[Rfam]
RNA sequence: CUUGAUCGAACCGAGCAGCAGCGGCUCGUGGGCCGACCGCUCCUGGCCGUACGUCGCCAGCAGCGCCUGCGCCUC
Dot-bracket structure: .............(((.......))).....((....((...(((.(.(....).).)))...))...)).....
Numbered sequence: 001c002u003u004g005a006u007c008g009a010a011c012c013g014a015g016c017a018g019c020a021g022c023g024g025c026u027c028g029u030g031g032g033c034c035g036a037c038c039g040c041u042c043c044u045g046g047c048c049g050u051a052c053g054u055c056g057c058c059a060g061c062a063g064c065g066c067c068u069g070c071g072c073c074u075c
Stems, first nucleotide, its partner, number of pairs: 014026003032070002038065002043060003047056001049054001